Shown here is a 90-nucleotide sequence from Lipingzhangella halophila, a member of the family "Glycine riboswitch aptamer". From the family's description: This family represents the bacterial glycine riboswitch. Glycine riboswitches usually consist of two metabolite-binding aptamers domains with similar structures in tandem. The aptamers cooperatively bind glycine to regulate the expression of downstream genes.
RNA sequence: UGACACCACGUGGGAGAGACCCUCAUCCGGGGCGCCGACGGGGCAAUACUCCCCAGUAACCUCUCAGGCACAAAGGACCACGUGGAGGAG
Numbered sequence: 001u002g003a004c005a006c007c008a009c010g011u012g013g014g015a016g017a018g019a020c021c022c023u024c025a026u027c028c029g030g031g032g033c034g035c036c037g038a039c040g041g042g043g044c045a046a047u048a049c050u051c052c053c054c055a056g057u058a059a060c061c062u063c064u065c066a067g068g069c070a071c072a073a074a075g076g077a078c079c080a081c082g083u084g085g086a087g088g089a090g
Stems, first nucleotide, its partner, number of pairs: 006085008020032004034069003037065002041063003047056001